Notes: This 113-nucleotide sequence from Enteractinococcus coprophilus belongs to the Rfam family "SAM (S-adenosyl methionine) riboswitch aptamer". Rfam links the family to the GO terms S-adenosylmethionine metabolic process and regulation of gene expression. Pairs were carried over by alignment from the consensus structure, which is taken from published work. A reference for the family is Weinberg et al. (2008), "The aptamer core of SAM-IV riboswitches mimics the ligand-binding site of SAM-I riboswitches", RNA. The match comes from Rfam's covariance-model search (76 bits). From the family's description: SAM-IV is a mRNA element that regulates gene expression via direct sensing of S-adenosylmethionine (SAM or AdoMet). The source organism's lineage runs through Bacteria, Bacillati, Micrococcales, Micrococcaceae and Enteractinococcus.
Nucleotides: 113
Stems, first nucleotide, its partner, number of pairs: 001079004009038001011037005021030002039066003044062003048057002082102006089096002
Number, partner (000 for none) and nucleotide at each position: 001079a002078a003077u004076c005000u006000u007000g008000a009038g010000a011037u012036c013035c014034g015033g016000u017000g018000c019000a020000c021030a022029g023000c024000c025000c026000u027000a028000g029022c030021u031000a032000c033015c034014c035013g036012g037011a038009c039066a040065g041064c042000a043000a044062c045061c046060c047000u048057c049056u050000c051000a052000c053000c054000g055000u056049a057048g058000u059000g060046g061045g062044g063000u064041g065040c066039u067000c068000u069000a070000g071000g072000u073000g074000a075000u076004g077003a078002u079001u080000c081000g082102g083101u084100c085099c086098a087097g088000c089096g090095a091000a092000a093000a094000a095090u096089c097087c098086u099085g100084g101083g102082c103000a104000a105000g106000u107000a108000u109000g110000g111000u112000g113000c